[Rfam]
RNA sequence: UGCGCAGCGCGUGUUUCAUCACGACAUUCGGGAAACUCACGCCUUUGAGGCGCGCGGUGCGGAUAUAUUGCGCGGUCAUCACCUCGGCCAUAGAGGCCCGCGUCAUCCGCGCGAUAUAGCCCAUACCAUAGAGCGCGAUGGUCAGAACCGGCAAAAAGAAAUUCUCGAACGUCGGGUUA
Dot-bracket structure: ....((.(((((.(((....(......(.((......(.(((...(((.(((.((.((((((.....)))))).)......((((.......))))).))).)))...))).)......)).))...).)).))))).)).....(((((((.(.((....)).).....))))).)).